Shown here is a 76-nucleotide sequence from Psilopogon haemacephalus, a member of the family "Small nucleolar RNA SNORD83". By type it is a C/D-box small nucleolar RNA. Rfam 15.1 lists 1,393 matches to the family in 644 species.

[Rfam]
RNA sequence: GCCAAAUGAUGUGACAUGGAUGGCACGAGCACUUGGUGCAAAGAUGACCUUCAUCUAUCACCCUAUACUGAUGGCU
Number, nucleotide and partner (000 for none) at each position: 001g075002c074003c073004a072005a000006a000007u000008g000009a000010u000011g000012u000013g000014a000015c000016a000017u000018g000019g000020a000021u000022g000023g000024c000025a000026c000027g000028a000029g039030c038031a037032c036033u000034u000035g000036g032037u031038g030039c029040a000041a000042a000043g000044a000045u000046g000047a000048c000049c000050u000051u000052c000053a000054u000055c000056u000057a000058u000059c000060a000061c000062c000063c000064u000065a000066u000067a000068c000069u000070g000071a000072u004073g003074g002075c001076u000
NCBI's taxonomy places the organism under Eukaryota, Eumetazoa, Craniata, Saurischia, Psilopogon. Gene Ontology terms of the family: RNA processing and nucleolus. A search with the family's covariance model found it, with a score of 65 bits.